[Rfam]
RNA: 6S / SsrS RNA
RNA sequence: GGGGGUCUGCGUUGUUCGUGUAGGUUGAAAGUGCCUCGAGCCCGAUUUUGUUCUUAUAGGGAGCCGUCACUGGUAACCUCGAGUAGGUUAUUACACGGCGCCCACCUUAGCUUUAGUCUCAGGACACUAAGCAAAGCGUUACGGCAAAUGCGGAUCUCCU
Numbered sequence: 001g002g003g004g005g006u007c008u009g010c011g012u013u014g015u016u017c018g019u020g021u022a023g024g025u026u027g028a029a030a031g032u033g034c035c036u037c038g039a040g041c042c043c044g045a046u047u048u049u050g051u052u053c054u055u056a057u058a059g060g061g062a063g064c065c066g067u068c069a070c071u072g073g074u075a076a077c078c079u080c081g082a083g084u085a086g087g088u089u090a091u092u093a094c095a096c097g098g099c100g101c102c103c104a105c106c107u108u109a110g111c112u113u114u115a116g117u118c119u120c121a122g123g124a125c126a127c128u129a130a131g132c133a134a135a136g137c138g139u140u141a142c143g144g145c146a147a148a149u150g151c152g153g154a155u156c157u158c159c160u
Stems, first nucleotide, its partner, number of pairs: 002158010012147004017143003033132002036129001038127001040125001042123002059103003063099005071093009